[Rfam]
RNA sequence: UUUUUAGUAUAAGUGUGCCCCAUGAAAUAUUGGGGAAAUGCUUAUACUAAAA
Dot-bracket structure: .....(((((((.(((..((((........).)))..))).)))))))....

A member of the RNA family "mir-1302 microRNA precursor family" from Rousettus aegyptiacus, 52 nucleotides long. Gene Ontology terms of the family: RISC complex and miRNA-mediated post-transcriptional gene silencing. On this family, see Morin et al., Genome Res 2008: "Application of massively parallel sequencing to microRNA profiling and discovery in human embryonic stem cells". The organism belongs to Rousettus, within Eukaryota. The family's consensus secondary structure was predicted with WAR.